[Rfam]
RNA sequence: UUAUCUAUAAGUAGAAAAGGCUCUCUACACACUCUUCGGAGUACCUGAGAUGAUGUAUACGCCGCCCAUCAUAGAUAA
Dot-bracket structure: ((((((((..(((((...[[[..))))).(((((....))))....)....((((.....]]]...))))))))))))
Rfam assigns this 78-nucleotide RNA sequence to the family "skipping-rope RNA". Pairs were carried over by alignment from the consensus structure, which is taken from published work. It is annotated as a small RNA.